The family of this 116-nucleotide RNA sequence from Tamaricihabitans halophyticus is "SAM (S-adenosyl methionine) riboswitch aptamer". Rfam 15.1 lists 2,360 matches to the family in 1,305 species. The organism belongs to Tamaricihabitans, within Bacteria. Pairs were carried over by alignment from the consensus structure, which is taken from published work.

[Rfam]
RNA sequence: GGUCAUGAGUGCCAGCGCGAAGCCCCGGCUUGCUGGCCGGCAACCCUCCGACCGCGGUGGGGUGCCCCGGGUGAGGACCUGGCCAGUACCAACACCGGUACGGGCAAGCGCGGGCC
Numbered sequence: 001g002g003u004c005a006u007g008a009g010u011g012c013c014a015g016c017g018c019g020a021a022g023c024c025c026c027g028g029c030u031u032g033c034u035g036g037c038c039g040g041c042a043a044c045c046c047u048c049c050g051a052c053c054g055c056g057g058u059g060g061g062g063u064g065c066c067c068c069g070g071g072u073g074a075g076g077a078c079c080u081g082g083c084c085a086g087u088a089c090c091a092a093c094a095c096c097g098g099u100a101c102g103g104g105c106a107a108g109c110g111c112g113g114g115c116c
Stems, first nucleotide, its partner, number of pairs: 001079004009038001011037006021030002039066003044062003048057002082105003086101005